[Rfam]
RNA sequence: UGGCCAGGGGGAUUCCUGGCAGAGUGAUUUUUAGACUACAGGACUGAAUCACAUUGCCAGGGAUUUCCAAUGGCU
Numbered sequence: 001u002g003g004c005c006a007g008g009g010g011g012a013u014u015c016c017u018g019g020c021a022g023a024g025u026g027a028u029u030u031u032u033a034g035a036c037u038a039c040a041g042g043a044c045u046g047a048a049u050c051a052c053a054u055u056g057c058c059a060g061g062g063a064u065u066u067c068c069a070a071u072g073g074c075u
Stems, first nucleotide, its partner, number of pairs: 002075001004073003010068002012064011024052007

The record is a 75-nucleotide RNA sequence from Takifugu rubripes, which matches "mir-23 microRNA precursor family" in Rfam. The organism belongs to Takifugu, within Eukaryota. Its family is annotated with RISC complex and gene silencing by miRNA in the Gene Ontology. Rfam 15.1 lists 1,403 matches to the family in 646 species. On this family, see Lagos-Quintana et al., Curr Biol 2002: "Identification of tissue-specific microRNAs from mouse". It is one of the family's seed sequences.